[Rfam]
RNA sequence: GUCGCAUGCCCUUCUUGGGCGUUUCCUCCCUAGACUUGGGCCGCCUUCGGGCGGCUCUUUUUUGUCCAGU
Numbered sequence: 001g002u003c004g005c006a007u008g009c010c011c012u013u014c015u016u017g018g019g020c021g022u023u024u025c026c027u028c029c030c031u032a033g034a035c036u037u038g039g040g041c042c043g044c045c046u047u048c049g050g051g052c053g054g055c056u057c058u059u060u061u062u063u064g065u066c067c068a069g070u
Stems, first nucleotide, its partner, number of pairs: 008020004040055006
RNA: Makes More Granules Regulator RNA (mmgR)